[Rfam]
RNA sequence: CCACUGCAGUGUGGAAGACUAGUGAUUUUGUUGUUCUUGGUGUUGAAACUGACAACAAGUCAUAGUCUGCCGCGCUGCUCUGUGA
Numbered sequence: 001c002c003a004c005u006g007c008a009g010u011g012u013g014g015a016a017g018a019c020u021a022g023u024g025a026u027u028u029u030g031u032u033g034u035u036c037u038u039g040g041u042g043u044u045g046a047a048a049c050u051g052a053c054a055a056c057a058a059g060u061c062a063u064a065g066u067c068u069g070c071c072g073c074g075c076u077g078c079u080c081u082g083u084g085a
Stems, first nucleotide, its partner, number of pairs: 001082001007077008016068005022063007030056006